Rfam assigns this 54-nucleotide RNA from Synechococcus lacustris to the family "Cyanobacterial functional RNA 1".
A reference for the family is Axmann et al. (2005), "Identification of cyanobacterial non-coding RNAs by comparative genome analysis", Genome Biol.
The source organism's lineage runs through Bacteria, Bacillati, Synechococcales, Synechococcaceae and Synechococcus lacustris.
The family's RNA type in Rfam is small RNA.
It scores 57 bits against the family's covariance model.

[Rfam]
RNA sequence: GUGUGGCUUCGGCCUCACACUCCUCACACCACCCGCCCGGCGCGUCCGGGCUUU
Numbered sequence: 001g002u003g004u005g006g007c008u009u010c011g012g013c014c015u016c017a018c019a020c021u022c023c024u025c026a027c028a029c030c031a032c033c034c035g036c037c038c039g040g041c042g043c044g045u046c047c048g049g050g051c052u053u054u
Base pairs, nucleotide, nucleotide: 001018002017003016005014006013007012035051036050037049038048039047040046